MIR535 microRNA precursor family: a 95-nucleotide sequence from Rhododendron williamsianum.
The literature on the family includes a 2010 paper in Nucleic Acids Res by Zeng et al., "Conservation and divergence of microRNAs and their functions in Euphorbiaceous plants".
NCBI's taxonomy places the organism under Eukaryota, Tracheophyta, Spermatophyta, Pentapetalae, Rhododendron.
Rfam links the family to the GO terms RISC complex and miRNA-mediated post-transcriptional gene silencing.
It scores 82 bits against the family's covariance model.

[Rfam]
RNA sequence: CAUAUCAUAUGACAACGAUAGAGAGCACGCUUGUAGACAAUCACAUCUUGUUCAUGAAUGCUUACUAGCGUGCUCUCUCUCGUCGUCAACCAAUC
Numbered sequence: 001c002a003u004a005u006c007a008u009a010u011g012a013c014a015a016c017g018a019u020a021g022a023g024a025g026c027a028c029g030c031u032u033g034u035a036g037a038c039a040a041u042c043a044c045a046u047c048u049u050g051u052u053c054a055u056g057a058a059u060g061c062u063u064a065c066u067a068g069c070g071u072g073c074u075c076u077c078u079c080u081c082g083u084c085g086u087c088a089a090c091c092a093a094u095c
Stems, first nucleotide, its partner, number of pairs: 010088004016082002020078002023075001025073007033065002